[Rfam]
RNA sequence: AGAUGCCAAGGUCAAAAGGUCUAAGCCCACAUGAGCUUGCUCACAGGUGGGUGAAAGACCUUAGGACCCGCCCCGAUAUGAGCAUAAAAGUGGAAUGAUAAUCCCACGAUAUGCGAAUAUUGAGUAGGAUUGUGGGAGUGCGUAGCACGGAGCAAUCCGUAGGCAUCA
Numbered sequence: 001a002g003a004u005g006c007c008a009a010g011g012u013c014a015a016a017a018g019g020u021c022u023a024a025g026c027c028c029a030c031a032u033g034a035g036c037u038u039g040c041u042c043a044c045a046g047g048u049g050g051g052u053g054a055a056a057g058a059c060c061u062u063a064g065g066a067c068c069c070g071c072c073c074c075g076a077u078a079u080g081a082g083c084a085u086a087a088a089a090g091u092g093g094a095a096u097g098a099u100a101a102u103c104c105c106a107c108g109a110u111a112u113g114c115g116a117a118u119a120u121u122g123a124g125u126a127g128g129a130u131u132g133u134g135g136g137a138g139u140g141c142g143u144a145g146c147a148c149g150g151a152g153c154a155a156u157c158c159g160u161a162g163g164c165a166u167c168a
Stems, first nucleotide, its partner, number of pairs: 002167006010068004016062007026051005032043004072124001074122006082114004092105002095102002127158007138148004

The record is a 168-nucleotide sequence from [Ruminococcus] lactaris, which matches "Clostridiales-1 RNA" in Rfam. Rfam classes the family as a small RNA. Pairs were carried over by alignment from the consensus structure, which is taken from published work. The sequence is in the family's curated seed alignment. NCBI's taxonomy places the organism under Bacteria, Bacillati, Lachnospirales, Lachnospiraceae, [Ruminococcus] lactaris.